The family of this 60-nucleotide RNA sequence from Marihabitans asiaticum is "msiK RNA". The family has 120 seed sequences and 1,374 matches in Rfam 15.1. The family's RNA type in Rfam is cis-regulatory element. NCBI's taxonomy places the organism under Bacteria, Actinomycetes, Micrococcales, Intrasporangiaceae, Marihabitans.
RNA sequence: CCGUUACAUCCCUUUACAACGGAUCGUCCGGCACGUUCCUGCCGGUGAAGGAAAGGCAAA
Numbered sequence: 001c002c003g004u005u006a007c008a009u010c011c012c013u014u015u016a017c018a019a020c021g022g023a024u025c026g027u028c029c030g031g032c033a034c035g036u037u038c039c040u041g042c043c044g045g046u047g048a049a050g051g052a053a054a055g056g057c058a059a060a
Stems, first nucleotide, its partner, number of pairs: 011051006028045006